[Rfam]
RNA sequence: CUGGUUUUUUGCCAUAAGCGAGGUAUAGAGUUCCUACGUGCAUUAAUUUGAUAUCUGUAGGAACUUCAUACCGUGCUCUUGGAGAGCCAUU
Numbered sequence: 001c002u003g004g005u006u007u008u009u010u011g012c013c014a015u016a017a018g019c020g021a022g023g024u025a026u027a028g029a030g031u032u033c034c035u036a037c038g039u040g041c042a043u044u045a046a047u048u049u050g051a052u053a054u055c056u057g058u059a060g061g062a063a064c065u066u067c068a069u070a071c072c073g074u075g076c077u078c079u080u081g082g083a084g085a086g087c088c089a090u091u
Base pairs, nucleotide, nucleotide: 012082013081014080017077018076019075020074022072023071024070025069026068028066029065030064031063032062033061034060035059036058037057
Dot-bracket structure: ...........(((..((((.(((((.((((((((((...................)))))))))).))))).))))..))).........
mir-276 microRNA precursor family: a 91-nucleotide RNA sequence from Musca domestica.
On this family, see Skalsky et al., BMC Genomics 2010: "Identification of microRNAs expressed in two mosquito vectors, Aedes albopictus and Culex quinquefasciatus".
Gene Ontology terms of the family: RISC complex and miRNA-mediated post-transcriptional gene silencing.
Lineage of the source: Eukaryota > Protostomia > Altocrustacea > Muscoidea > Musca.
The family's consensus secondary structure was predicted with RNAalifold.
Rfam 15.1 lists 200 matches to the family in 170 species.